The record is an 81-nucleotide RNA sequence from Oreochromis niloticus, which matches "Small nucleolar RNA SNORD72" in Rfam. The family's RNA type in Rfam is C/D-box small nucleolar RNA. The match comes from Rfam's covariance-model search (56 bits). The source organism's lineage runs through Eukaryota, Ctenosquamata, Cichliformes, African cichlids and Oreochromis. Rfam links the family to the GO terms nucleolus and RNA processing. The pairing is the family consensus, mapped onto this sequence. Rfam describes the family as follows. snoRNA HBII-240 belongs to the CD family of snoRNAs. It is the human orthologue of the mouse MBII-240 and is predicted to guide 2'O-ribose methylation of the large 28S rRNA at residue U4590.

RNA sequence: GUCUUGUCAGUGAUGUUUUUAAAACACAAAUGUCUGAACAAAUGACUGCCUGUGAUUCCUCAUUUUUCACUGAGACAAGAC
Numbered sequence: 001g002u003c004u005u006g007u008c009a010g011u012g013a014u015g016u017u018u019u020u021a022a023a024a025c026a027c028a029a030a031u032g033u034c035u036g037a038a039c040a041a042a043u044g045a046c047u048g049c050c051u052g053u054g055a056u057u058c059c060u061c062a063u064u065u066u067u068c069a070c071u072g073a074g075a076c077a078a079g080a081c
Stems, first nucleotide, its partner, number of pairs: 002080007